[Rfam]
RNA sequence: UUCCGCUGCCCUUCUUGGGCGUUUCCUCCCUAGACUUGGGCCGCAGCGCUUCCGCGCGCGGCCCUUUUUCUUUUCUGAA
Numbered sequence: 001u002u003c004c005g006c007u008g009c010c011c012u013u014c015u016u017g018g019g020c021g022u023u024u025c026c027u028c029c030c031u032a033g034a035c036u037u038g039g040g041c042c043g044c045a046g047c048g049c050u051u052c053c054g055c056g057c058g059c060g061g062c063c064c065u066u067u068u069u070c071u072u073u074u075c076u077g078a079a
Stems, first nucleotide, its partner, number of pairs: 008020004038064007
Dot-bracket structure: .......((((.....)))).................(((((((.............)))))))...............
Shown here is a 79-nucleotide sequence from Segnochrobactrum spirostomi, a member of the family "Makes More Granules Regulator RNA (mmgR)". Gene Ontology terms of the family: protein binding, response to nitrogen compound and DNA-templated transcription, termination.